Notes: U1 spliceosomal RNA: a 164-nucleotide RNA sequence from Otolemur garnettii. Gene Ontology terms of the family: pre-mRNA 5'-splice site binding, U1 snRNP and mRNA 5'-splice site recognition. It is annotated as a spliceosomal small nuclear RNA. The family is grouped with related families in Rfam's "U1 clan".

RNA sequence: AUAAUUGCCUGGCAGGAAAGAUGCCGCCAUGAUCACGAAGGAGAUUUACCCAGGGUGAGGCUUUUCCAUUGCACUCCAGAUGUGCGGACCCCCGUGAUUUCCCCAAAUGUGGGAAACUCAACUGCAUAAUUUGUGGUAGGAGGGACCAUGUUCAAGCUCUCCCC
Numbered sequence: 001a002u003a004a005u006u007g008c009c010u011g012g013c014a015g016g017a018a019a020g021a022u023g024c025c026g027c028c029a030u031g032a033u034c035a036c037g038a039a040g041g042a043g044a045u046u047u048a049c050c051c052a053g054g055g056u057g058a059g060g061c062u063u064u065u066c067c068a069u070u071g072c073a074c075u076c077c078a079g080a081u082g083u084g085c086g087g088a089c090c091c092c093c094g095u096g097a098u099u100u101c102c103c104c105a106a107a108u109g110u111g112g113g114a115a116a117c118u119c120a121a122c123u124g125c126a127u128a129a130u131u132u133g134u135g136g137u138a139g140g141a142g143g144g145a146c147c148a149u150g151u152u153c154a155a156g157c158u159c160u161c162c163c164c
Stems, first nucleotide, its partner, number of pairs: 012125004016051001020050001022048002026045001028043001030041001053092003057089001060085002063082001065080002095120003098116003102112002140163001142161004147156001149154001